[Rfam]
RNA sequence: AAGAGACUCGAGCCAAUAAAGACUGAGAAGAUUGACUCAAAAAUGAA
Numbered sequence: 001a002a003g004a005g006a007c008u009c010g011a012g013c014c015a016a017u018a019a020a021g022a023c024u025g026a027g028a029a030g031a032u033u034g035a036c037u038c039a040a041a042a043a044u045g046a047a
Stems, first nucleotide, its partner, number of pairs: 008040001010038003014034004